This 69-nucleotide RNA from Paraburkholderia solisilvae belongs to the Rfam family "int-alpA RNA".
Acidobacteria (1 example), Planctomycetes (1 example), Proteobacteria.
The family's RNA type in Rfam is small RNA.
[Rfam]
RNA sequence: GUCGCGCCUAGCCCGGCCAGGCGAAAGGCGGGCUACCCGGGCCCGCUGGCGCGAUCCUCGACCGGGAUG
Numbered sequence: 001g002u003c004g005c006g007c008c009u010a011g012c013c014c015g016g017c018c019a020g021g022c023g024a025a026a027g028g029c030g031g032g033c034u035a036c037c038c039g040g041g042c043c044c045g046c047u048g049g050c051g052c053g054a055u056c057c058u059c060g061a062c063c064g065g066g067a068u069g
Stems, first nucleotide, its partner, number of pairs: 001055008011022003028046005036069001